The record is a 98-nucleotide RNA from Oleiagrimonas soli, which matches "TPP riboswitch aptamer (THI element)" in Rfam. NCBI's taxonomy places the organism under Bacteria, Pseudomonadati, Pseudomonadota, Gammaproteobacteria, Oleiagrimonas.
RNA sequence: UUCGUGAAGCGGGGGUGCCUGGCGUACGGCCGGGCUGAGAGAGUCCCUUGGAACCUGAUCCGGUUGAUACCGGCGUAGGGAGCUUCGACAGGCGCAGU
Numbered sequence: 001u002u003c004g005u006g007a008a009g010c011g012g013g014g015g016u017g018c019c020u021g022g023c024g025u026a027c028g029g030c031c032g033g034g035c036u037g038a039g040a041g042a043g044u045c046c047c048u049u050g051g052a053a054c055c056u057g058a059u060c061c062g063g064u065u066g067a068u069a070c071c072g073g074c075g076u077a078g079g080g081a082g083c084u085u086c087g088a089c090a091g092g093c094g095c096a097g098u
Stems, first nucleotide, its partner, number of pairs: 006086005011048004016042001017035007054079004060073004
Vitamin B(1) in its active form thiamin pyrophosphate (TPP) is an essential coenzyme that is synthesised by coupling of pyrimidine and thiazole moieties in bacteria. The previously detected thiamin-regulatory element, thi box was extended, resulting in a new, highly conserved RNA secondary structure, the THI element, which is widely distributed in eubacteria and also occurs in some archaea. Analysis of operon structures identified a large number of new candidate thiamin-regulated genes, mostly transporters, in various prokaryotic organisms. The THI element is a riboswitch that directly binds to TPP to regulate gene expression through a variety of mechanisms in archaea, bacteria and eukaryotes. through a variety of mechanisms in archaea, bacteria and eukaryotes.